[Rfam]
Record summary
Small nucleolar RNA SNORD90: a 111-nucleotide RNA from Fukomys damarensis. Rfam classes the family as a C/D-box small nucleolar RNA. Rfam links the family to the GO terms nucleolus and RNA processing.
RNA sequence: AUCAGUGUUUUCUAAGUGUCUGAUGAUGAGUUUUAUAGGGCAGAUUCUGAGGUGAAAAUUUAAUUCAUCCUUGAUAUUCCUUCUGUGGAAUCUGAAGACACUUGAAAACCU
Numbered sequence: 001a002u003c004a005g006u007g008u009u010u011u012c013u014a015a016g017u018g019u020c021u022g023a024u025g026a027u028g029a030g031u032u033u034u035a036u037a038g039g040g041c042a043g044a045u046u047c048u049g050a051g052g053u054g055a056a057a058a059u060u061u062a063a064u065u066c067a068u069c070c071u072u073g074a075u076a077u078u079c080c081u082u083c084u085g086u087g088g089a090a091u092c093u094g095a096a097g098a099c100a101c102u103u104g105a106a107a108a109c110c111u
Stems, first nucleotide, its partner, number of pairs: 013104009030091007037081004043075001046074002049071001051069006

A reference for the family is Huttenhofer et al. (2001), "RNomics: an experimental approach that identifies 201 candidates for novel, small, non-messenger RNAs in mouse", EMBO J. Rfam describes the family as follows. snoRNA HBII-295 belongs to the family of C/D snoRNAs. It is the human orthologue of the mouse MBII-295 and has no identified RNA target.